Rfam assigns this 245-nucleotide part of an RNA from an uncultured Verrucomicrobiota bacterium to the family "Bacterial large subunit ribosomal RNA".
Pairs were carried over by alignment from the consensus structure, which is taken from published work.
It is one of the family's seed sequences.
RNA sequence: AAAGAAUUGAGGGAUUUGCUUUCUAGUACGAGAGGACCGAAAGCAACACACCAAUAGUGUAUCAGUUGUCGUUUCAAUGGCAUCGCUGAGUAGCCAAGUGUGGAAAAGAUAAGCGCUGAAAGCAUCUAAGCGCCAAGCUCCCCCCAAGACCAGUUCUUUUUUAAAUCGUGGUAGACUACCACGUCGAUAGGGCGGUUGUGCAAUGGGUGUAAGCCCUUGAGCAAAGCGCUACUAAUAUUUAAUCC
Numbered sequence: 001a002a003a004g005a006a007u008u009g010a011g012g013g014a015u016u017u018g019c020u021u022u023c024u025a026g027u028a029c030g031a032g033a034g035g036a037c038c039g040a041a042a043g044c045a046a047c048a049c050a051c052c053a054a055u056a057g058u059g060u061a062u063c064a065g066u067u068g069u070c071g072u073u074u075c076a077a078u079g080g081c082a083u084c085g086c087u088g089a090g091u092a093g094c095c096a097a098g099u100g101u102g103g104a105a106a107a108g109a110u111a112a113g114c115g116c117u118g119a120a121a122g123c124a125u126c127u128a129a130g131c132g133c134c135a136a137g138c139u140c141c142c143c144c145c146a147a148g149a150c151c152a153g154u155u156c157u158u159u160u161u162u163a164a165a166u167c168g169u170g171g172u173a174g175a176c177u178a179c180c181a182c183g184u185c186g187a188u189a190g191g192g193c194g195g196u197u198g199u200g201c202a203a204u205g206g207g208u209g210u211a212a213g214c215c216c217u218u219g220a221g222c223a224a225a226g227c228g229c230u231a232c233u234a235a236u237a238u239u240u241a242a243u244c245c
Base pairs, nucleotide, nucleotide: 001159002158003157004156005155006154007153008152011145012144013143017045018044019043020042021041022040023039047102048101049100050099051098055096057094062089063088064087065086066085067082068081069080070079071078072077107139108138113133114132115131116130117129163240164239165238166237167183168182169181170180171179188234189233190232191230192229193228194227196224197223198222205216206215207214208213
Dot-bracket structure: ((((((((..(((...(((((((...............))))))).(((((...(.(....(((((((((((....))))))..)))))....).).)))))....((....(((((...........)))))....))...)))......))))))))...(((((((((.......)))))....(((((((.(((......((((....)))).....)))..)))).)))..)))).....